[Rfam]
RNA sequence: UGGAGAUGCUCUUUCUUGAUAUGGAAUACGGACCUUAGAUAAGUCGUAUUAUCCCAUGUCGGAAGGGCAUUUCCUUUAUUCCCACGCCGUUGGAAACUAAACUACAUCGGUGGAUCCAG
Numbered sequence: 001u002g003g004a005g006a007u008g009c010u011c012u013u014u015c016u017u018g019a020u021a022u023g024g025a026a027u028a029c030g031g032a033c034c035u036u037a038g039a040u041a042a043g044u045c046g047u048a049u050u051a052u053c054c055c056a057u058g059u060c061g062g063a064a065g066g067g068c069a070u071u072u073c074c075u076u077u078a079u080u081c082c083c084a085c086g087c088c089g090u091u092g093g094a095a096a097c098u099a100a101a102c103u104a105c106a107u108c109g110g111u112g113g114a115u116c117c118a119g
Stems, first nucleotide, its partner, number of pairs: 002074012017061003021057004026049002029046001032044002103114001105112002
Background:
The family of this 119-nucleotide sequence from Corynebacterium occultum is "Actinobacteria sRNA Ms_IGR-7". The match comes from Rfam's covariance-model search (52 bits). The base pairs follow the family's consensus structure. For this family Rfam cites "Identification of small RNAs in Mycobacterium smegmatis using heterologous Hfq" (Li et al., RNA, 2013).